[Rfam]
RNA sequence: ACCGGCGUUUGACCCUGAGGCACUCAUACCGCCAGCUGGUUUAGAAUGCCAGCCCGUAUAUAUGAGUGCCUCACGUAGCGUUUAGAAUGCUAGCGGUACGAGUGUCUCAAGGUCAAACUCCGGU
Numbered sequence: 001a002c003c004g005g006c007g008u009u010u011g012a013c014c015c016u017g018a019g020g021c022a023c024u025c026a027u028a029c030c031g032c033c034a035g036c037u038g039g040u041u042u043a044g045a046a047u048g049c050c051a052g053c054c055c056g057u058a059u060a061u062a063u064g065a066g067u068g069c070c071u072c073a074c075g076u077a078g079c080g081u082u083u084a085g086a087a088u089g090c091u092a093g094c095g096g097u098a099c100g101a102g103u104g105u106c107u108c109a110a111g112g113u114c115a116a117a118c119u120c121c122g123g124u
Stems, first nucleotide, its partner, number of pairs: 005120001007118008016109010027098006034091003046063003
Dot-bracket structure: ....(.((((((((.((((((((((.((((((.(((.........(((............))).........................))).)))))).)))))))))).)))))))).)....
A member of the RNA family "MIR6201 microRNA precursor family" from Triticum aestivum, 124 nucleotides long. Taxonomically the source falls in Triticum (Eukaryota, Magnoliopsida, Liliopsida, Triticodae).